About this RNA: The record is a 77-nucleotide RNA from Streptomyces sp. DJ, which matches "Actino-pnp RNA" in Rfam. The source organism's lineage runs through Bacteria, Actinomycetota, Kitasatosporales, Streptomycetaceae and Streptomyces. The family's consensus secondary structure is taken from published work.
RNA sequence: GCCGGUCCUCGGUAGUGGCCCCCGGACGGCCCGCGCGAAGCGCGCCCGCCCCCCGGAGGCUUCGAUCGAAGACCGGC
Numbered sequence: 001g002c003c004g005g006u007c008c009u010c011g012g013u014a015g016u017g018g019c020c021c022c023c024g025g026a027c028g029g030c031c032c033g034c035g036c037g038a039a040g041c042g043c044g045c046c047c048g049c050c051c052c053c054c055g056g057a058g059g060c061u062u063c064g065a066u067c068g069a070a071g072a073c074c075g076g077c
Stems, first nucleotide, its partner, number of pairs: 001077007009069005017061004022056004028051002